[Rfam]
RNA sequence: AGGACGGGCCUUUCAGGCAUCCUCUCCCAAACUUCCAAAGGCCGGCUCUGCCGGCCUUUUUUUUGGCCGGC
Numbered sequence: 001a002g003g004a005c006g007g008g009c010c011u012u013u014c015a016g017g018c019a020u021c022c023u024c025u026c027c028c029a030a031a032c033u034u035c036c037a038a039a040g041g042c043c044g045g046c047u048c049u050g051c052c053g054g055c056c057u058u059u060u061u062u063u064u065g066g067c068c069g070g071c
Stems, first nucleotide, its partner, number of pairs: 008018004040056007
The family of this 71-nucleotide RNA from Novosphingobium sp. MD-1 is "Makes More Granules Regulator RNA (mmgR)".
The match comes from Rfam's covariance-model search (43 bits).
Its family is annotated with DNA-templated transcription, termination, response to nitrogen compound and protein binding in the Gene Ontology.
The family has 87 seed sequences and 1,791 matches in Rfam 15.1.
Rfam classes the family as a small RNA.
For this family Rfam cites "Expression of the Sinorhizobium meliloti small RNA gene mmgR is controlled by the nitrogen source" (Ceizel Borella et al., FEMS Microbiol Lett, 2016).